[Rfam]
RNA sequence: AAAGCAAAGCAGAAGCAACCCGCUUCUCGCCUUAGUAAAAUUGUUUACUGGGCAUGAUAUCGAGUCAGGACUGAUCACUUGUGAACAGUCUUGUAAUUGAGCGGGCGCACUGUGUGCCCGCUUUUUUCUGCUUUU
Numbered sequence: 001a002a003a004g005c006a007a008a009g010c011a012g013a014a015g016c017a018a019c020c021c022g023c024u025u026c027u028c029g030c031c032u033u034a035g036u037a038a039a040a041u042u043g044u045u046u047a048c049u050g051g052g053c054a055u056g057a058u059a060u061c062g063a064g065u066c067a068g069g070a071c072u073g074a075u076c077a078c079u080u081g082u083g084a085a086c087a088g089u090c091u092u093g094u095a096a097u098u099g100a101g102c103g104g105g106c107g108c109a110c111u112g113u114g115u116g117c118c119c120g121c122u123u124u125u126u127u128c129u130g131c132u133u134u135u
Stems, first nucleotide, its partner, number of pairs: 011027006029053003035048005100122010
Dot-bracket structure: ..........((((((.....)))))).(((...(((((....)))))..)))..............................................((((((((((...)))))))))).............
This 135-nucleotide sequence from Lentilactobacillus curieae belongs to the Rfam family "Ribosomal protein L20 leader". Taxonomically the source falls in Lentilactobacillus (Bacteria, Bacillati, Lactobacillales, Lactobacillaceae). A search with the family's covariance model found it, with a score of 74 bits. The literature on the family includes a 1994 paper in Prog Nucleic Acid Res Mol Biol by Zengel and Lindahl, "Diverse mechanisms for regulating ribosomal protein synthesis in Escherichia coli". Its family is annotated with regulation of gene expression in the Gene Ontology.